This 130-nucleotide RNA from Otolemur garnettii belongs to the Rfam family "U4atac minor spliceosomal RNA". The organism belongs to Otolemur, within Eukaryota. From the family's description: U4atac is an essential component of the minor U12-type spliceosome complex which is required for removal of the rarer class of eukaryotic introns (AT-AC, U12-type). The match comes from Rfam's covariance-model search (91 bits).

RNA sequence: ACCAUCCUUUUCUUGGGGUUGCGCUACUGUCCCAUAAGGGCCUAGCGAGGGUAGUAUUGCUAACACCUACCGAACACGCUUGCAUCAACUAACUAGAGCUUUGGUUUAUAUUGGUGCAAUUUUUGGAAAA
Numbered sequence: 001a002c003c004a005u006c007c008u009u010u011u012c013u014u015g016g017g018g019u020u021g022c023g024c025u026a027c028u029g030u031c032c033c034a035u036a037a038g039g040g041c042c043u044a045g046c047g048a049g050g051g052u053a054g055u056a057u058u059g060c061u062a063a064c065a066c067c068u069a070c071c072g073a074a075c076a077c078g079c080u081u082g083c084a085u086c087a088a089c090u091a092a093c094u095a096g097a098g099c100u101u102u103g104g105u106u107u108a109u110a111u112u113g114g115u116g117c118a119a120u121u122u123u124u125g126g127a128a129a130a
Base pairs, nucleotide, nucleotide: 006018007017008016009015021060022059023058026055027054028053029052030051031050032049038046082117083116084115085114086113087112094108095107096106097105099103